A member of the RNA family "Lysine riboswitch aptamer" from Clostridium sp. MSTE9, 176 nucleotides long.
About the family: Riboswitches are metabolite binding domains within certain messenger RNAs that serve as precision sensors for their corresponding targets. Allosteric rearrangement of mRNA structure is mediated by ligand binding, and this results in modulation of gene expression. This family includes riboswitches that sense lysine in a number of genes involved in lysine metabolism, including lysC.
The organism belongs to Clostridium, within Bacteria.
RNA sequence: UAAGAAGAUAGAGGCGCGUCUUUCAAAAGUAGCGGGAUGUAGGUUGCCAAAACCGACGAGAGCCUGUGAAAGGGAAAGUCGCCGAAGGGAAUGCCCCGGCAGGCAUUCGCCUGGUUAUGUCUGCGAACAGCAGCAUGACUGUCAUCAUGAGAUUAUGGUGGAGAGCUAUCACAGAG
Numbered sequence: 001u002a003a004g005a006a007g008a009u010a011g012a013g014g015c016g017c018g019u020c021u022u023u024c025a026a027a028a029g030u031a032g033c034g035g036g037a038u039g040u041a042g043g044u045u046g047c048c049a050a051a052a053c054c055g056a057c058g059a060g061a062g063c064c065u066g067u068g069a070a071a072g073g074g075a076a077a078g079u080c081g082c083c084g085a086a087g088g089g090a091a092u093g094c095c096c097c098g099g100c101a102g103g104c105a106u107u108c109g110c111c112u113g114g115u116u117a118u119g120u121c122u123g124c125g126a127a128c129a130g131c132a133g134c135a136u137g138a139c140u141g142u143c144a145u146c147a148u149g150a151g152a153u154u155a156u157g158g159u160g161g162a163g164a165g166c167u168a169u170c171a172c173a174g175a176g
Base pairs, nucleotide, nucleotide: 007170008169009168010167011166016082017081018080020078021077022076023075024074032067033066034065035064036063038061086112087111088110089108090107091106092105093104094103095102113140114139115138116137117136118135119134121133122132123131124130142161143160144159145158146157147156148155